Notes
Shown here is a 73-nucleotide RNA from Pseudoflavonifractor sp. AF19-9AC, a member of the family "Fluoride riboswitch aptamer (crcB RNA motif)".
[Rfam]
RNA sequence: UAGGGCUCCGGGAAUGAAGUUCUCCCUUGGGUAACCUAAACCGCUUUUGUAAGCUGAUGACUUCUGCGAUGAC
Numbered sequence: 001u002a003g004g005g006c007u008c009c010g011g012g013a014a015u016g017a018a019g020u021u022c023u024c025c026c027u028u029g030g031g032u033a034a035c036c037u038a039a040a041c042c043g044c045u046u047u048u049g050u051a052a053g054c055u056g057a058u059g060a061c062u063u064c065u066g067c068g069a070u071g072a073c
Stems, first nucleotide, its partner, number of pairs: 010026004016064006043054004
Background:
The source organism's lineage runs through Bacteria, Bacillota, Eubacteriales, Oscillospiraceae and Pseudoflavonifractor. The match comes from Rfam's covariance-model search (50 bits).